[Rfam]
RNA sequence: UUAAAAUACAAAUAGGGUCACCUAUAUUGUAUACCUACAUACCCGAACAAAGAGUUUAAGCGUACUGUAAGUACGUCGGACGUAGGGCCACCAGUAGGUGGCUUUUUUAUUU
Numbered sequence: 001u002u003a004a005a006a007u008a009c010a011a012a013u014a015g016g017g018u019c020a021c022c023u024a025u026a027u028u029g030u031a032u033a034c035c036u037a038c039a040u041a042c043c044c045g046a047a048c049a050a051a052g053a054g055u056u057u058a059a060g061c062g063u064a065c066u067g068u069a070a071g072u073a074c075g076u077c078g079g080a081c082g083u084a085g086g087g088c089c090a091c092c093a094g095u096a097g098g099u100g101g102c103u104u105u106u107u108u109a110u111u112u
Stems, first nucleotide, its partner, number of pairs: 007031005012025005034086005043079003046056003060076006087102006

Source information: Rfam assigns this 112-nucleotide RNA to the family "DUF3800-I RNA". The family's RNA type in Rfam is small RNA. Rfam describes the family as follows. Actinobacteria, Firmicutes, Fusobacteria, Proteobacteria (1 example), Tenericutes (2 examples).